[Rfam]
RNA sequence: AGGCAAUGAUGAGUGAAGUGUAGGCUGACCUGGUAUGGCCAUUGCUUUAGUCUUGGCUUUGACCAGGGUAUGAUCCCUCAAUCUUCUCUCUGAGCUG
Number, nucleotide and partner (000 for none) at each position: 001a096002g000003g095004c094005a000006a000007u000008g000009a000010u000011g000012a000013g000014u000015g000016a000017a000018g000019u000020g000021u000022a000023g000024g000025c000026u000027g000028a000029c000030c000031u000032g000033g000034u000035a000036u000037g000038g057039c056040c055041a054042u000043u000044g000045c000046u000047u000048u000049a000050g000051u000052c000053u000054u041055g040056g039057c038058u000059u000060u000061g000062a000063c000064c000065a000066g000067g000068g000069u000070a000071u000072g000073a000074u000075c000076c000077c000078u000079c000080a000081a000082u000083c000084u000085u000086c000087u000088c000089u000090c000091u000092g000093a000094g004095c003096u001097g000
Annotation: Shown here is a 97-nucleotide RNA sequence from Loxodonta africana, a member of the family "Z30 small nucleolar RNA". A reference for the family is Galardi et al. (2002), "Purified box C/D snoRNPs are able to reproduce site-specific 2'-O-methylation of target RNA in vitro", Mol Cell Biol. The sequence is in the family's curated seed alignment. The base pairs follow the family's consensus structure, which was predicted with PFOLD.